[Rfam]
RNA sequence: UUUCCCCAGUGAACAUUCAACGCUGUCGGUGAGUUUGAGUUAAAUUGACAAAAACCAUCGACCGUUGAGUGUACCCUGUGGCCAG
Numbered sequence: 001u002u003u004c005c006c007c008a009g010u011g012a013a014c015a016u017u018c019a020a021c022g023c024u025g026u027c028g029g030u031g032a033g034u035u036u037g038a039g040u041u042a043a044a045u046u047g048a049c050a051a052a053a054a055c056c057a058u059c060g061a062c063c064g065u066u067g068a069g070u071g072u073a074c075c076c077u078g079u080g081g082c083c084a085g
Base pairs, nucleotide, nucleotide: 001085002084004081005080007078008077014071015070016069017068018067019066020065021064022063025062026061027060028059029058030057031056033055034054035053036052
About this RNA:
The family of this 85-nucleotide RNA from Oncorhynchus kisutch is "mir-181 microRNA precursor family". A search with the family's covariance model found it, with a score of 75 bits. The base pairs follow the family's consensus structure, which was predicted with PFOLD. Rfam links the family to the GO terms miRNA-mediated post-transcriptional gene silencing and RISC complex.